RNA sequence: ACUCUUUUUGAUUUCAUUCAGUUGAAAUCCUCACGCAAGUACGCCGUAAGACGCAAGCACAGGCGGAAAGCU
Numbered sequence: 001a002c003u004c005u006u007u008u009u010g011a012u013u014u015c016a017u018u019c020a021g022u023u024g025a026a027a028u029c030c031u032c033a034c035g036c037a038a039g040u041a042c043g044c045c046g047u048a049a050g051a052c053g054c055a056a057g058c059a060c061a062g063g064c065g066g067a068a069a070g071c072u
Stems, first nucleotide, its partner, number of pairs: 010029007042065004
Shown here is a 72-nucleotide sequence, a member of the family "Ocean-V RNA". It is annotated as a small RNA.